[Rfam]
Rfam assigns this 107-nucleotide RNA sequence from Acidocella aminolytica to the family "Glycine riboswitch aptamer". Taxonomically the source falls in Acidocella aminolytica (Bacteria, Acetobacterales, Acidocellaceae, Acidocella). Rfam links the family to the GO term glycine biosynthetic process. It scores 60 bits against the family's covariance model.

RNA sequence: CACAUGGAUGCAGGAGAGAGCGGAGACAUGCUUCCAACAUGGCUUUCCGCCGCCGAAGGCGCAACCGGCCCCCGGAACCGCUCAGGCAAAAGGGCUGCAGUUCAUUA
Numbered sequence: 001c002a003c004a005u006g007g008a009u010g011c012a013g014g015a016g017a018g019a020g021c022g023g024a025g026a027c028a029u030g031c032u033u034c035c036a037a038c039a040u041g042g043c044u045u046u047c048c049g050c051c052g053c054c055g056a057a058g059g060c061g062c063a064a065c066c067g068g069c070c071c072c073c074g075g076a077a078c079c080g081c082u083c084a085g086g087c088a089a090a091a092g093g094g095c096u097g098c099a100g101u102u103c104a105u106u107a
Stems, first nucleotide, its partner, number of pairs: 006102002009099005020050007052087003055083002059081003065075002